[Rfam]
RNA sequence: GAGUCUAACAUGUGUGCAAGUAUAUAAGUAAUUAAAACUUAUAUGCAUAAUGAAAGUGACAAUUGGGAUUUUUUUUAAAAGAAAAUGCACCAAUGACCGACAUUAAUUCAUUUUUGAAUUAAAGUUUGAGUAUGAGCAUAAAUGUUAGGACCCGAAAGAUGGUGAACUAUGCCUGAGUAGGGUGAAGCCAGGGGAAACUCUGGUGGAAGCUCGCAGCGAUACUGACGUGCAAAUCGUUCGUCAAACUUGGGUAUAGGGGCGAAAGACUAAUCGAACCAUCUAGUAGCUGGUU
Numbered sequence: 001g002a003g004u005c006u007a008a009c010a011u012g013u014g015u016g017c018a019a020g021u022a023u024a025u026a027a028g029u030a031a032u033u034a035a036a037a038c039u040u041a042u043a044u045g046c047a048u049a050a051u052g053a054a055a056g057u058g059a060c061a062a063u064u065g066g067g068a069u070u071u072u073u074u075u076u077a078a079a080a081g082a083a084a085a086u087g088c089a090c091c092a093a094u095g096a097c098c099g100a101c102a103u104u105a106a107u108u109c110a111u112u113u114u115u116g117a118a119u120u121a122a123a124g125u126u127u128g129a130g131u132a133u134g135a136g137c138a139u140a141a142a143u144g145u146u147a148g149g150a151c152c153c154g155a156a157a158g159a160u161g162g163u164g165a166a167c168u169a170u171g172c173c174u175g176a177g178u179a180g181g182g183u184g185a186a187g188c189c190a191g192g193g194g195a196a197a198c199u200c201u202g203g204u205g206g207a208a209g210c211u212c213g214c215a216g217c218g219a220u221a222c223u224g225a226c227g228u229g230c231a232a233a234u235c236g237u238u239c240g241u242c243a244a245a246c247u248u249g250g251g252u253a254u255a256g257g258g259g260c261g262a263a264a265g266a267c268u269a270a271u272c273g274a275a276c277c278a279u280c281u282a283g284u285a286g287c288u289g290g291u292u
Stems, first nucleotide, its partner, number of pairs: 005148007013140005020046003025041005050057002062094005070085004096131002098128003101124001103122001107118004151290002154287001158280006167256011178244001180212004187204007216241004221237002224235002258268002
Description: Rfam assigns this 292-nucleotide part of an RNA from Cryptosporidium parvum to the family "Eukaryotic large subunit ribosomal RNA". The family has 88 seed sequences and 107,465 matches in Rfam 15.1. It is one of the family's seed sequences. Taxonomically the source falls in Cryptosporidium parvum (Eukaryota, Apicomplexa, Eucoccidiorida, Cryptosporidium). On this family, see Yusupov et al., Science 2001: "Crystal structure of the ribosome at 5.5 A resolution".